RNA: Potassium channel RNA editing signal
RNA sequence: GUUGGGUAUGGAGAUAUCUAUCCACAGACUCUGCUUGGUAAAAUAGUCGGUGGGCUUUGCUGCAUCGCAGGCGUGUUGGUGAUCGCUUUACCAAUUCCCAUCAUCGUCAACAAC
Numbered sequence: 001g002u003u004g005g006g007u008a009u010g011g012a013g014a015u016a017u018c019u020a021u022c023c024a025c026a027g028a029c030u031c032u033g034c035u036u037g038g039u040a041a042a043a044u045a046g047u048c049g050g051u052g053g054g055c056u057u058u059g060c061u062g063c064a065u066c067g068c069a070g071g072c073g074u075g076u077u078g079g080u081g082a083u084c085g086c087u088u089u090a091c092c093a094a095u096u097c098c099c100a101u102c103a104u105c106g107u108c109a110a111c112a113a114c
Stems, first nucleotide, its partner, number of pairs: 001114002004111001008107004013102003020095002037077004049063001